A member of the RNA family "Alphaproteobacteria transfer-messenger RNA" from Puniceibacterium antarcticum, 355 nucleotides long.
The family is grouped with related families in Rfam's "tRNA clan".
The organism belongs to Puniceibacterium, within Bacteria.
By type it is a non-coding RNA gene.
The literature on the family includes a 1996 paper in RNA by Williams and Bartel, "Phylogenetic analysis of tmRNA secondary structure".
RNA sequence: CCCAUUGAAUUGCGCUGCGAACCCGCCUAUAUUGCGACUGUCUGGCAACAGACUAUGGACAUAAACGCGCUCGUAAUACGCGGAUCGGACCCGGGGGCGGUACCCGGCCACUCCACCAUUACCCCCGUUCAUUUGGCGGUCAUGGGGUGGAAAUAGGAUCGACGAACGUCUAAAGGGGUUUUGCUUUGUCUCGGUGAGGUACCACCGUUAUCGGUCCGAAAAGUACAAUUGCAAAUGACAAUCGUGCUCCGAUGGCUGUUGCCGCGUAAGCGGUACCAAACAUCGAAAACUUAAGCCCUUGCGCUUAGCAGCGUAAGGCGGGGUUCGCAGGCACCUGGCAACAGAAGCCUGCACU
Numbered sequence: 001c002c003c004a005u006u007g008a009a010u011u012g013c014g015c016u017g018c019g020a021a022c023c024c025g026c027c028u029a030u031a032u033u034g035c036g037a038c039u040g041u042c043u044g045g046c047a048a049c050a051g052a053c054u055a056u057g058g059a060c061a062u063a064a065a066c067g068c069g070c071u072c073g074u075a076a077u078a079c080g081c082g083g084a085u086c087g088g089a090c091c092c093g094g095g096g097g098c099g100g101u102a103c104c105c106g107g108c109c110a111c112u113c114c115a116c117c118a119u120u121a122c123c124c125c126c127g128u129u130c131a132u133u134u135g136g137c138g139g140u141c142a143u144g145g146g147g148u149g150g151a152a153a154u155a156g157g158a159u160c161g162a163c164g165a166a167c168g169u170c171u172a173a174a175g176g177g178g179u180u181u182u183g184c185u186u187u188g189u190c191u192c193g194g195u196g197a198g199g200u201a202c203c204a205c206c207g208u209u210a211u212c213g214g215u216c217c218g219a220a221a222a223g224u225a226c227a228a229u230u231g232c233a234a235a236u237g238a239c240a241a242u243c244g245u246g247c248u249c250c251g252a253u254g255g256c257u258g259u260u261g262c263c264g265c266g267u268a269a270g271c272g273g274u275a276c277c278a279a280a281c282a283u284c285g286a287a288a289a290c291u292u293a294a295g296c297c298c299u300u301g302c303g304c305u306u307a308g309c310a311g312c313g314u315a316a317g318g319c320g321g322g323g324u325u326c327g328c329a330g331g332c333a334c335c336u337g338g339c340a341a342c343a344g345a346a347g348c349c350u351g352c353a354c355u
Base pairs, nucleotide, nucleotide: 040053041052042051043050044049057191058190059189060188061187067184068183069179070178071177072176081168082167085165086164087163091107092106093105094104095103108150109149110148111147112146113145114144192207193206194205195204198217199216201215202214203213321336322335323334324333327352328351329350330349331348332347